[Rfam]
RNA sequence: AGUGAAGAUAGAGGUGCGAACUUCAAGAGUAAAAGUCAGGAGAAUUGUAGGAUUCAUUGAUGGACUUUGAAAGGGGAUGUUCGCCGAAGUGGGGAAAUACCUAUCGAUUUUCUCGCUGGUCCUUCGUUGAAUAAACGCUGGAUUGUCAAGAUUGCCAUCUUGGAGUGCUAUCUCAUGU
Numbered sequence: 001a002g003u004g005a006a007g008a009u010a011g012a013g014g015u016g017c018g019a020a021c022u023u024c025a026a027g028a029g030u031a032a033a034a035g036u037c038a039g040g041a042g043a044a045u046u047g048u049a050g051g052a053u054u055c056a057u058u059g060a061u062g063g064a065c066u067u068u069g070a071a072a073g074g075g076g077a078u079g080u081u082c083g084c085c086g087a088a089g090u091g092g093g094g095a096a097a098u099a100c101c102u103a104u105c106g107a108u109u110u111u112c113u114c115g116c117u118g119g120u121c122c123u124u125c126g127u128u129g130a131a132u133a134a135a136c137g138c139u140g141g142a143u144u145g146u147c148a149a150g151a152u153u154g155c156c157a158u159c160u161u162g163g164a165g166u167g168c169u170a171u172c173u174c175a176u177g178u
Stems, first nucleotide, its partner, number of pairs: 006173006016084006022077003032068006039061001088117011118144005125137004146163007
Source information: This 178-nucleotide sequence from Mesobacillus selenatarsenatis belongs to the Rfam family "Lysine riboswitch aptamer". Pairs were carried over by alignment from the consensus structure, which is taken from published work.